The family of this 55-nucleotide RNA sequence is "eL15-Euryarchaeota ribosomal protein leader".

RNA sequence: CCCGAGAGCUCGGGACGAAAUGUGGGCCGGCGUCGACCGUCGCCCGAAUCGCAAG
Numbered sequence: 001c002c003c004g005a006g007a008g009c010u011c012g013g014g015a016c017g018a019a020a021u022g023u024g025g026g027c028c029g030g031c032g033u034c035g036a037c038c039g040u041c042g043c044c045c046g047a048a049u050c051g052c053a054a055g
Base pairs, nucleotide, nucleotide: 001014002013003012004011005010016051017050018049024045025044026043027042
Record summary:
On this family, see Eckert and Weinberg, BMC Microbiol 2020: "Discovery of 20 novel ribosomal leader candidates in bacteria and archaea".